[Rfam]
RNA: Small nucleolar RNA snoR8a
RNA sequence: GAGUUAGCGAUGAUUAUAAAAAUAAUUCUUCGUUCUGACUUGCUUAAUUUAGACAUUACAAACCUCUUAUUACAACAUAGGAUCUGAGUUAC
Dot-bracket structure: ..((.((.................................................................................))))